RNA sequence: AGCUUUGUGCAGUGGCAGUAUUUUAGCCAAUGAGGUUUAUCUGAGGCAUGAUUGCUAAUUGAAAACUUUUUCCAAUACCCUGCCACGAUGACUUGAAAUACAGUUGGCAGUGGCAAUUUUUGACAGUCUCUAUGGAGA
Numbered sequence: 001a002g003c004u005u006u007g008u009g010c011a012g013u014g015g016c017a018g019u020a021u022u023u024u025a026g027c028c029a030a031u032g033a034g035g036u037u038u039a040u041c042u043g044a045g046g047c048a049u050g051a052u053u054g055c056u057a058a059u060u061g062a063a064a065a066c067u068u069u070u071u072c073c074a075a076u077a078c079c080c081u082g083c084c085a086c087g088a089u090g091a092c093u094u095g096a097a098a099u100a101c102a103g104u105u106g107g108c109a110g111u112g113g114c115a116a117u118u119u120u121u122g123a124c125a126g127u128c129u130c131u132a133u134g135g136a137g138a
Base pairs, nucleotide, nucleotide: 020049024048026047027046028045034042035041082114083113084112087108089106090105091104092103093102127138128137129136130135
Shown here is a 138-nucleotide RNA sequence from Otolemur garnettii, a member of the family "U4 spliceosomal RNA".
The family's RNA type in Rfam is spliceosomal small nuclear RNA.
Lineage of the source: Eukaryota > Craniata > Vertebrata > Mammalia > Otolemur.
Pairs were carried over by alignment from the consensus structure, which is taken from published work.